Background:
TPP riboswitch aptamer (THI element): a 105-nucleotide sequence from Xenorhabdus szentirmaii. Lineage of the source: Bacteria > Pseudomonadota > Morganellaceae > Xenorhabdus > Xenorhabdus szentirmaii. It scores 66 bits against the family's covariance model.
RNA sequence: GCCAUCUCAACGGGGUGCAGUUGAUGUUGAACAAUGCUGCUGAGAAUAAACCCGUCGAACCUGAACCGGCUAGUACCGACGUAGGGAUUUGAGACGCAAUCCAUU
Numbered sequence: 001g002c003c004a005u006c007u008c009a010a011c012g013g014g015g016u017g018c019a020g021u022u023g024a025u026g027u028u029g030a031a032c033a034a035u036g037c038u039g040c041u042g043a044g045a046a047u048a049a050a051c052c053c054g055u056c057g058a059a060c061c062u063g064a065a066c067c068g069g070c071u072a073g074u075a076c077c078g079a080c081g082u083a084g085g086g087a088u089u090u091g092a093g094a095c096g097c098a099a100u101c102c103a104u105u
Stems, first nucleotide, its partner, number of pairs: 006093005011054004016048001017040005060085004067078003